glmS glucosamine-6-phosphate activated ribozyme aptamer: a 148-nucleotide sequence from Clostridium isatidis. The family's consensus secondary structure is taken from published work. The source organism's lineage runs through Bacteria, Bacillota, Clostridia, Eubacteriales and Clostridium. The family's RNA type in Rfam is riboswitch. It scores 100 bits against the family's covariance model.
RNA sequence: AUUUUAAUAAAAGCGCCAGAGCCCAAGUGGCUGACGAGGUUAGGGUUUAUCGAAAUGUUCGGCGGGUGCCCUACGGUAUUAGUACUACCGUUAAAGAUUAACAAACCUAAAAAGCAAUUUUUAGAACAAAAUUAAUCGGGUACUAAGA
Numbered sequence: 001a002u003u004u005u006a007a008u009a010a011a012a013g014c015g016c017c018a019g020a021g022c023c024c025a026a027g028u029g030g031c032u033g034a035c036g037a038g039g040u041u042a043g044g045g046u047u048u049a050u051c052g053a054a055a056u057g058u059u060c061g062g063c064g065g066g067u068g069c070c071c072u073a074c075g076g077u078a079u080u081a082g083u084a085c086u087a088c089c090g091u092u093a094a095a096g097a098u099u100a101a102c103a104a105a106c107c108u109a110a111a112a113a114g115c116a117a118u119u120u121u122u123a124g125a126a127c128a129a130a131a132u133u134a135a136u137c138g139g140g141u142a143c144u145a146a147g148a
Base pairs, nucleotide, nucleotide: 020032021031022030023029041073042072043071044070045069050062051061052060053059074090075089076088077087078086096137097136098135099134100133107124108123109122110121111120112119113118